Description: The family of this 97-nucleotide part of an RNA from Halovenus carboxidivorans is "Archaeal large subunit ribosomal RNA".
[Rfam]
RNA sequence: GACAGGGCAUACAAGGUCCUGUGAAAAACGACACAGCCGCGAGGCUGCAGUAGGAAUCACAGGAAGCCGAUGUUCUGUCGUACGUUUUGAAAAACGG
Numbered sequence: 001g002a003c004a005g006g007g008c009a010u011a012c013a014a015g016g017u018c019c020u021g022u023g024a025a026a027a028a029c030g031a032c033a034c035a036g037c038c039g040c041g042a043g044g045c046u047g048c049a050g051u052a053g054g055a056a057u058c059a060c061a062g063g064a065a066g067c068c069g070a071u072g073u074u075c076u077g078u079c080g081u082a083c084g085u086u087u088u089g090a091a092a093a094a095c096g097g
Base pairs, nucleotide, nucleotide: 001079002078003077004076005075006074007073008072009071010070015068016067019062020061021060022059023058024057029053034047035046036045037044038043083096084095085094
Dot-bracket structure: ((((((((((....((..((((((....(....(((((....))))).....)...))))))....)).))))))))))...(((........))).